This 131-nucleotide RNA sequence from Turnix velox belongs to the Rfam family "Small nucleolar RNA SNORA3/SNORA45 family". The source organism's lineage runs through Eukaryota, Tetrapoda, Theropoda, Turnicidae and Turnix. The match comes from Rfam's covariance-model search (60 bits). The family's RNA type in Rfam is H/ACA-box small nucleolar RNA. Gene Ontology terms of the family: nucleolus and RNA processing. The members of this family belong to the H/ACA class of snoRNAs which are thought to guide the sites of modification of uridines to pseudouridines. This family includes mouse snoMBI-28 and human homologues ACA3 (SNORA3) and ACA3-2 (SNORA45). Both ACA3 and ACA3-2 share the same host gene. MBI-28, ACA3 and ACA3-2 are all predicted to guide the pseudouridylation of residues in 28S rRNA. The base pairs follow the family's consensus structure, which was predicted with RNAalifold.

[Rfam]
RNA sequence: AUCGAGAUUCGAGUCACAUCUCAACAUGUUUGGUUGUCGUGGUGUGCUAUCAAUCUCGGACAUCAAUGUCUGAUCAUAUUCACUGGCUGCAACCUCUCAUGUCUCAGCCAGUCACCGAACCAGCAACACUG
Numbered sequence: 001a002u003c004g005a006g007a008u009u010c011g012a013g014u015c016a017c018a019u020c021u022c023a024a025c026a027u028g029u030u031u032g033g034u035u036g037u038c039g040u041g042g043u044g045u046g047c048u049a050u051c052a053a054u055c056u057c058g059g060a061c062a063u064c065a066a067u068g069u070c071u072g073a074u075c076a077u078a079u080u081c082a083c084u085g086g087c088u089g090c091a092a093c094c095u096c097u098c099a100u101g102u103c104u105c106a107g108c109c110a111g112u113c114a115c116c117g118a119a120c121c122a123g124c125a126a127c128a129c130u131g
Stems, first nucleotide, its partner, number of pairs: 002059005008052001012048002015046006024037003070123003074119001082112005088106002092102002